[Rfam]
Rfam assigns this 152-nucleotide sequence from Alsobacter soli to the family "speF leader". Gene Ontology term of the family: regulation of gene expression. Rfam's curators write: This family is a putative regulatory RNA structure that is found upstream of the speF gene encoding ornithine decarboxylase in Agrobacterium tumefaciens and other alpha-proteobacteria.
RNA sequence: GUCCGGCCCUCCAAAGGUCGGGUCACCGAAGAGGCUUGUCCUUCUUGCCAGGCGUGCGGAUCGGGGUCUCCCCAAUCCAAUCCAAGGCAGCAUCAUCGGGUGUCCUCACCCGACGUCGGCGUCUCCACAGCGCCGCGUCGUGGGACCGUCAU
Numbered sequence: 001g002u003c004c005g006g007c008c009c010u011c012c013a014a015a016g017g018u019c020g021g022g023u024c025a026c027c028g029a030a031g032a033g034g035c036u037u038g039u040c041c042u043u044c045u046u047g048c049c050a051g052g053c054g055u056g057c058g059g060a061u062c063g064g065g066g067u068c069u070c071c072c073c074a075a076u077c078c079a080a081u082c083c084a085a086g087g088c089a090g091c092a093u094c095a096u097c098g099g100g101u102g103u104c105c106u107c108a109c110c111c112g113a114c115g116u117c118g119g120c121g122u123c124u125c126c127a128c129a130g131c132g133c134c135g136c137g138u139c140g141u142g143g144g145a146c147c148g149u150c151a152u
Stems, first nucleotide, its partner, number of pairs: 001023008033049003056133003101115004
The family's RNA type in Rfam is cis-regulatory leader. Lineage of the source: Bacteria > Pseudomonadati > Pseudomonadota > Alsobacteraceae > Alsobacter.